[Rfam]
RNA sequence: GAGUGAAAGCAGAGGCGCCCGGCUUCUCACCUGGACGACGCAGAAAUGCAGUUGUCGGGUCUGGAUAUAAGGUUGAAUUUUCAAUGCGGGCGUUUAUGCGCCCGCAUUUUUAUUUUGAC
Numbered sequence: 001g002a003g004u005g006a007a008a009g010c011a012g013a014g015g016c017g018c019c020c021g022g023c024u025u026c027u028c029a030c031c032u033g034g035a036c037g038a039c040g041c042a043g044a045a046a047u048g049c050a051g052u053u054g055u056c057g058g059g060u061c062u063g064g065a066u067a068u069a070a071g072g073u074u075g076a077a078u079u080u081u082c083a084a085u086g087c088g089g090g091c092g093u094u095u096a097u098g099c100g101c102c103c104g105c106a107u108u109u110u111u112a113u114u115u116u117g118a119c
Stems, first nucleotide, its partner, number of pairs: 011027006029060003037053003040049002085106009
This 119-nucleotide RNA sequence from Sporolactobacillus putidus belongs to the Rfam family "Ribosomal protein L20 leader". The family's RNA type in Rfam is cis-regulatory leader. A search with the family's covariance model found it, with a score of 60 bits. Taxonomically the source falls in Sporolactobacillus (Bacteria, Bacillota, Caryophanales, Sporolactobacillaceae). Pairs were carried over by alignment from the consensus structure, which was predicted with CMfinder.